[Rfam]
RNA sequence: CUGUGGUGCAUUGUAGUUGCAUUGCAUGUGUCUGUACCAAGUGCAAUGUUUCUGCAGUGCAGCACUG
Numbered sequence: 001c002u003g004u005g006g007u008g009c010a011u012u013g014u015a016g017u018u019g020c021a022u023u024g025c026a027u028g029u030g031u032c033u034g035u036a037c038c039a040a041g042u043g044c045a046a047u048g049u050u051u052c053u054g055c056a057g058u059g060c061a062g063c064a065c066u067g
Stems, first nucleotide, its partner, number of pairs: 001067001003065002006063001007061010019049001021047007
Dot-bracket structure: (.((.(((((((((((..(.(((((((.............))))))).)..)))))))))).))).)
Source information: mir-33 microRNA precursor family: a 67-nucleotide sequence from Anguilla anguilla. The base pairs follow the family's consensus structure, which was predicted with PFOLD. A search with the family's covariance model found it, with a score of 73 bits.